Record summary
The family of this 86-nucleotide RNA from Desulforamulus reducens is "pan motif". NCBI's taxonomy places the organism under Bacteria, Clostridia, Eubacteriales, Peptococcaceae, Desulforamulus reducens. The family's RNA type in Rfam is cis-regulatory element.
[Rfam]
RNA sequence: CGGGUAGUAUCCCUAGGGGAACUGCACCUUUUUCCUGACAAAUAAAAUAUUUUGCCGCUUGGAGCCGAAGGGACCGAGACGGGGGG
Numbered sequence: 001c002g003g004g005u006a007g008u009a010u011c012c013c014u015a016g017g018g019g020a021a022c023u024g025c026a027c028c029u030u031u032u033u034c035c036u037g038a039c040a041a042a043u044a045a046a047a048u049a050u051u052u053u054g055c056c057g058c059u060u061g062g063a064g065c066c067g068a069a070g071g072g073a074c075c076g077a078g079a080c081g082g083g084g085g086g
Stems, first nucleotide, its partner, number of pairs: 002028002004025005010020002055082003058078005065072002
Dot-bracket structure: .(((((((.((.......))))))).))..........................((((((((..((....)).))))).)))....